RNA: Small nucleolar RNA snR60/Z15/Z230/Z193/J17
RNA sequence: UGGGGUUAGGCGAUGAUCAGAAGCAUAAUUCAAAUGAUUUAUUUAUGAUUAUAAAGCUUCAGUGUUUCACUCCUAUUUGGUAAUUCCC
Numbered sequence: 001u002g003g004g005g006u007u008a009g010g011c012g013a014u015g016a017u018c019a020g021a022a023g024c025a026u027a028a029u030u031c032a033a034a035u036g037a038u039u040u041a042u043u044u045a046u047g048a049u050u051a052u053a054a055a056g057c058u059u060c061a062g063u064g065u066u067u068c069a070c071u072c073c074u075a076u077u078u079g080g081u082a083a084u085u086c087c088c
Base pairs, nucleotide, nucleotide: 004085005084006083007082008081